[Rfam]
A member of the RNA family "Actinobacteria sRNA Ms_IGR-7" from Actinospica durhamensis, 119 nucleotides long.
The organism belongs to Actinospica, within Bacteria.
RNA sequence: GCGAGAUGCCCUUCUGAACUGGUCGAACAAGGUCCUAGACAAACCUCAUUCUUCCAGGUCAGGGGGCAUCUCGUGUCACCGGGGCCAGCCUACGCGCGAAUAGCCAUCCGUGGAUCCAG
Numbered sequence: 001g002c003g004a005g006a007u008g009c010c011c012u013u014c015u016g017a018a019c020u021g022g023u024c025g026a027a028c029a030a031g032g033u034c035c036u037a038g039a040c041a042a043a044c045c046u047c048a049u050u051c052u053u054c055c056a057g058g059u060c061a062g063g064g065g066g067c068a069u070c071u072c073g074u075g076u077c078a079c080c081g082g083g084g085c086c087a088g089c090c091u092a093c094g095c096g097c098g099a100a101u102a103g104c105c106a107u108c109c110g111u112g113g114a115u116c117c118a119g
Base pairs, nucleotide, nucleotide: 002073003072004071005070006069007068008067009066010065011064012063013062015061016060017059019057020056021055022054025051026050027049030046032044033043098117100115101114104113105112106111
Rfam 15.1 lists 463 matches to the family in 194 species. On this family, see Li et al., RNA 2013: "Identification of small RNAs in Mycobacterium smegmatis using heterologous Hfq".